About this RNA: Plastid-psbA-1 3UTR RNA: a 122-nucleotide RNA from Lactuca saligna. Its Rfam clan is "Plastid-psbA 3UTR RNA clan". It is annotated as a cis-regulatory element. A search with the family's covariance model found it, with a score of 85 bits. Rfam's curators write: Plastid psbA-1 is a non-coding RNA (ncRNA) present in plastids. It was identified in inverted repeat sequences in the 3 prime untranslate region (3UTR) of photosystem II quinone-binding protein (psbA). A reference for the family is Richter et al. (2023), "Retrograde signaling in plants: A critical review focusing on the GUN pathway and beyond", Plant Commun. The family's consensus secondary structure was predicted with LocARNA.
RNA sequence: UCGAAGCUUCAUCUACAAAUGAAUAAGACUUUUGUCUUAUUGUAAUUAUAUAUGAGUUUUUGAACUAAAAAAUGAGCAAUAAUGUCUUCUUGAUAAAACAAGAAGGAAGCUAUUGUUGUUUU
Dot-bracket structure: .......(((((......)))))..............................................(((..(((((((...(((((((........))))).))...)))))))..)))